RNA sequence: AGUCCGAUAGUAUGGUAGAAAGAAAAAUAUGAACCUUUCUACCACACUAUCUAUUAUUGAAUAAAGUUGUACCAUAUUAUAGAU
Numbered sequence: 001a002g003u004c005c006g007a008u009a010g011u012a013u014g015g016u017a018g019a020a021a022g023a024a025a026a027a028u029a030u031g032a033a034c035c036u037u038u039c040u041a042c043c044a045c046a047c048u049a050u051c052u053a054u055u056a057u058u059g060a061a062u063a064a065a066g067u068u069g070u071a072c073c074a075u076a077u078u079a080u081a082g083a084u
Base pairs, nucleotide, nucleotide: 006051007050008049009048010047011046013044014043015042016041017040018039019038020037021036022035023028
Plastid-psbM 3UTR RNA: an 84-nucleotide RNA sequence from Nelumbo nucifera.
A search with the family's covariance model found it, with a score of 54 bits.
The literature on the family includes a 2023 paper in Plant Commun by Richter et al., "Retrograde signaling in plants: A critical review focusing on the GUN pathway and beyond".
The organism belongs to Nelumbo, within Eukaryota.
Rfam's curators write: Plastid psbM is a non-coding RNA (ncRNA) recognised in plastids. It was found in the three prime untranslated region (3UTR) of psbM gene, its 3UTR location suggests a role in transcript maturation.